Shown here is an 84-nucleotide sequence from Flexistipes sinusarabici, a member of the family "tRNA". Pairs were carried over by alignment from the consensus structure, which is taken from published work. Lineage of the source: Bacteria > Pseudomonadati > Deferribacterales > Flexistipitaceae > Flexistipes sinusarabici.

RNA sequence: GCCGGAGUGGUGGAAUUGGUAGACGCGCCGGACUCAAAAUCCGGUGGGGUCAAACCCGUGCGAGUUCGAUUCUCGCCUCCGGCA
Numbered sequence: 001g002c003c004g005g006a007g008u009g010g011u012g013g014a015a016u017u018g019g020u021a022g023a024c025g026c027g028c029c030g031g032a033c034u035c036a037a038a039a040u041c042c043g044g045u046g047g048g049g050u051c052a053a054a055c056c057c058g059u060g061c062g063a064g065u066u067c068g069a070u071u072c073u074c075g076c077c078u079c080c081g082g083c084a
Base pairs, nucleotide, nucleotide: 001083002082003081004080005079006078007077010026011025012024028044029043030042031041032040060076061075062074063073064072